[Rfam]
RNA sequence: UAACUAUCAUAUUGUCAUACUUAUUUAUACUGCGAAUUGGCGCAGUGUCUCUACAAGACACCUUAAUGUCUAACAAUAAGUAAGCUUUUAAGCUUG
Numbered sequence: 001u002a003a004c005u006a007u008c009a010u011a012u013u014g015u016c017a018u019a020c021u022u023a024u025u026u027a028u029a030c031u032g033c034g035a036a037u038u039g040g041c042g043c044a045g046u047g048u049c050u051c052u053a054c055a056a057g058a059c060a061c062c063u064u065a066a067u068g069u070c071u072a073a074c075a076a077u078a079a080g081u082a083a084g085c086u087u088u089u090a091a092g093c094u095u096g
Base pairs, nucleotide, nucleotide: 018082019081020080021079022078023077024076025075029046030045031044032043033042034041056071057070058069059068060067
Description
Rfam assigns this 96-nucleotide RNA sequence from Streptococcus ictaluri to the family "Purine riboswitch aptamer". Rfam 15.1 lists 4,097 matches to the family in 1,411 species. The family is grouped with related families in Rfam's "Purine riboswitches". Pairs were carried over by alignment from the consensus structure, which is taken from published work. A search with the family's covariance model found it, with a score of 56 bits.